[Rfam]
Nucleotides: 187
Base pairs, nucleotide, nucleotide: 008180009179010178011177016079017078018077019076022073023072024071032064033063034062035061036060037059038058039057083112084111085110086109087108088107089106090105093102094101113140114139116137117136118135119134120133121132122131123130142172143171144170145169146168147167148166
Number, partner (000 for none) and nucleotide at each position: 001000a002000g003000u004000c005000c006000g007000u008180g009179u010178a011177g012000a013000g014000g015000u016079g017078c018077a019076a020000u021000c022073a023072a024071g025000a026000u027000a028000a029000g030000u031000a032064a033063a034062u035061c036060a037059g038058g039057g040000u041000a042000g043000g044000g045000u046000g047000a048000u049000g050000c051000c052000a053000g054000u055000a056000a057039c058038c059037u060036u061035g062034a063033u064032u065000a066000a067000a068000a069000g070000g071024c072023u073022u074000u075000u076019u077018u078017g079016c080000c081000g082000a083112a084111g085110u086109a087108a088107a089106c090105g091000u092000g093102u094101u095000u096000a097000u098000c099000a100000g101094a102093g103000a104000c105090c106089g107088u108087u109086u110085g111084c112083u113140g114139g115000g116137g117136u118135u119134g120133u121132u122131c123130u124000c125000g126000a127000a128000u129000a130123g131122g132121g133120g134119c135118a136117a137116c138000a139114c140113u141000g142172c143171c144170a145169u146168a147167g148166u149000c150000u151000a152000u153000u154000a155000u156000u157000u158000g159000u160000u161000g162000u163000a164000u165000a166148a167147c168146u169145a170144u171143g172142g173000a174000g175000c176000g177011c178010u179009a180008c181000u182000g183000u184000a185000g186000g187000a
Lysine riboswitch aptamer: a 187-nucleotide sequence from Vibrio ruber.
A reference for the family is Mandal et al. (2003), "Riboswitches Control Fundamental Biochemical Pathways in Bacillus subtilis and Other Bacteria", Cell.
Gene Ontology term of the family: lysine biosynthetic process.